[Rfam]
RNA sequence: UGGCGGUUCAGGACUUAGCUGUAUUGUGAACACUUGUUUCUUUACCGCCUGUUCACAGUGGCUAAGUUCCGCACUUCUU
Dot-bracket structure: ..........((((((((((.....(((((((.................)))))))...))))))))))..........
The family of this 79-nucleotide sequence from Hymenochirus boettgeri is "mir-27 microRNA precursor family". Its family is annotated with miRNA-mediated post-transcriptional gene silencing and RISC complex in the Gene Ontology. A reference for the family is Chen et al. (2005), "The developmental miRNA profiles of zebrafish as determined by small RNA cloning", Genes Dev. The organism belongs to Hymenochirus, within Eukaryota.